[Rfam]
RNA sequence: ACGGUUCCGGUUCACGUCCCGACGGUCGCCCGCAGCGGCGCCCGGCGCACGGGGCGACCCGGCGACC
Numbered sequence: 001a002c003g004g005u006u007c008c009g010g011u012u013c014a015c016g017u018c019c020c021g022a023c024g025g026u027c028g029c030c031c032g033c034a035g036c037g038g039c040g041c042c043c044g045g046c047g048c049a050c051g052g053g054g055c056g057a058c059c060c061g062g063c064g065a066c067c
Base pairs, nucleotide, nucleotide: 003067004066005065007062008061009060010059015056016055017054018053019052020051021050
RNA: L31-Actinobacteria ribosomal protein leader